Notes: The family of this 104-nucleotide RNA from Mycolicibacterium wolinskyi is "mraW RNA". A search with the family's covariance model found it, with a score of 51 bits. By type it is a cis-regulatory element.
Nucleotides: 104
Base pairs, nucleotide, nucleotide: 010091011090012089013088014087015086016085018083019082021080022079023078024077025076026075027074028073029072030071031070032069036068037067038066040064041063042062043061044060045059046058047057
Number, partner (000 for none) and nucleotide at each position: 001000g002000a003000c004000a005000g006000c007000c008000c009000c010091u011090g012089c013088a014087g015086c016085g017000u018083g019082g020000u021080c022079u023078c024077u025076g026075u027074c028073c029072g030071a031070a032069u033000c034000a035000a036068u037067g038066g039000a040064c041063c042062u043061g044060g045059c046058g047057u048000u049000g050000g051000g052000g053000a054000a055000g056000u057047a058046c059045g060044c061043c062042a063041g064040g065000g066038c067037c068036g069032a070031u071030u072029c073028g074027g075026g076025c077024a078023g079022a080021g081000g082019c083018c084000g085016c086015g087014u088013u089012g090011c091010a092000c093000g094000g095000g096000c097000u098000a099000g100000g101000u102000c103000c104000g